[Rfam]
RNA sequence: AGCUAAAUGGUCAAAGAGGCACUUUGUCGGUGGUGUUGAUCUUCUACCAGUCAGGGGCAGAACAGAUGGCAGUCCUUUGUUCAUCCUAGCUUGGUGCCUGGCUUGGUGACCAAAGCUGUUUUAAGCCUAGGACACAUAU
Numbered sequence: 001a002g003c004u005a006a007a008u009g010g011u012c013a014a015a016g017a018g019g020c021a022c023u024u025u026g027u028c029g030g031u032g033g034u035g036u037u038g039a040u041c042u043u044c045u046a047c048c049a050g051u052c053a054g055g056g057g058c059a060g061a062a063c064a065g066a067u068g069g070c071a072g073u074c075c076u077u078u079g080u081u082c083a084u085c086c087u088a089g090c091u092u093g094g095u096g097c098c099u100g101g102c103u104u105g106g107u108g109a110c111c112a113a114a115g116c117u118g119u120u121u122u123a124a125g126c127c128u129a130g131g132a133c134a135c136a137u138a139u
Base pairs, nucleotide, nucleotide: 002052008049009048010047014043015042016041018037019036020035021034022033023032078134079133080132081131082130093127094126095125099123100122101121104118105117107115
The family of this 139-nucleotide RNA sequence from Mus spicilegus is "Small nucleolar RNA SNORA48".
For this family Rfam cites "Mapping to nucleotide resolution of pseudouridine residues in large subunit ribosomal RNAs from representative eukaryotes, prokaryotes, archaebacteria, mitochondria and chloroplasts" (Ofengand and Bakin, J Mol Biol, 1997).
About the family: The snoRNA ACA 48 has been identified to guide pseudouridylation of the residue U3797 in the 28S rRNA subunit.
The base pairs follow the family's consensus structure, which was predicted with RNAalifold.
The family has 24 seed sequences and 2,109 matches in Rfam 15.1.
Rfam classes the family as an H/ACA-box small nucleolar RNA.
Its Rfam clan is "SNORA48 clan".